[Rfam]
Streptococcus sRNA SpF59 (ldcC RNA): a 61-nucleotide RNA sequence. The family's RNA type in Rfam is small RNA. Rfam's curators put it in the seed alignment. For this family Rfam cites "Control of virulence by small RNAs in Streptococcus pneumoniae" (Mann et al., PLoS Pathog, 2012).
Nucleotides: 061
Stems, first nucleotide, its partner, number of pairs: 001053005006028004011023004
Number, partner (000 for none) and nucleotide at each position: 001053c002052g003051a004050c005049c006028g007027c008026c009025g010000c011023c012022g013021u014020g015000c016000c017000c018000u019000g020014c021013a022012c023011g024000c025009c026008g027007g028006c029000c030000a031000a032000g033000g034000c035000c036000a037000u038000a039000c040000g041000g042000a043000c044000a045000g046000c047000c048000g049005g050004g051003u052002c053001g054000a055000a056000u057000g058000c059000c060000g061000c